[Rfam]
RNA sequence: GGCGUUGAUGAUGAGGAUACAAAGCUCUCUCUUCUGAUUUUGAGGUGAGGACAAUUGCAGGCUGGAUCGAACCCAAACAAAUCUAGCCACCGUUGAGUCA
Numbered sequence: 001g002g003c004g005u006u007g008a009u010g011a012u013g014a015g016g017a018u019a020c021a022a023a024g025c026u027c028u029c030u031c032u033u034c035u036g037a038u039u040u041u042g043a044g045g046u047g048a049g050g051a052c053a054a055u056u057g058c059a060g061g062c063u064g065g066a067u068c069g070a071a072c073c074c075a076a077a078c079a080a081a082u083c084u085a086g087c088c089a090c091c092g093u094u095g096a097g098u099c100a
Stems, first nucleotide, its partner, number of pairs: 006100004
Rfam assigns this 100-nucleotide sequence from Medicago truncatula to the family "Small nucleolar RNA R30/Z108". The literature on the family includes a 2002 paper in Curr Biol by Marker et al., "Experimental RNomics. Identification of 140 Candidates for Small Non-Messenger RNAs in the Plant Arabidopsis thaliana". Taxonomically the source falls in Medicago (Eukaryota, Viridiplantae, Gunneridae, Fabales). The match comes from Rfam's covariance-model search (67 bits). Rfam 15.1 lists 626 matches to the family in 219 species. The family is grouped with related families in Rfam's "SNORD100 clan". Pairs were carried over by alignment from the consensus structure, which was predicted with PFOLD. Rfam describes the family as follows. snoR30 is a C/D box small nucleolar RNA which acts as a methylation guide for 18S ribosomal RNA in plants. Gene Ontology terms of the family: nucleolus and RNA processing.